Rfam assigns this 94-nucleotide RNA from Sulfobacillus sp. hq2 to the family "c-di-GMP-I riboswitch aptamer".
GEMM was predicted in a large-scale screen for bacterial structured RNA regulatory elements. Genes associated with GEMM are involved in a diverse array of functions, including chemotaxis regulation, signal transduction, secretion and chitin.
Pairs were carried over by alignment from the consensus structure, which is taken from published work.
Nucleotides: 094
Stems, first nucleotide, its partner, number of pairs: 012037002017032006040088003045084001047083002049079003056073004
Number, partner (000 for none) and nucleotide at each position: 001000a002000a003000u004000a005000g006000a007000u008000a009000a010000a011000g012037g013036c014000a015000c016000c017032c018031c019030g020029a021028g022027u023000g024000a025000a026000a027022a028021c029020u030019c031018g032017g033000u034000u035000c036013g037012c038000a039000a040088a041087g042086c043000c044000a045084c046000a047083g048082g049079g050078u051077c052000u053000a054000c055000c056073g057072u058071c059070c060000c061000g062000u063000u064000g065000a066000a067000a068000g069000g070059g071058g072057g073056c074000c075000a076000u077051g078050a079049c080000a081000g082048c083047c084045g085000u086042g087041c088040u089000g090000c091000c092000g093000c094000a
Taxonomically the source falls in Sulfobacillus (Bacteria, Bacillota, Clostridia, Eubacteriales).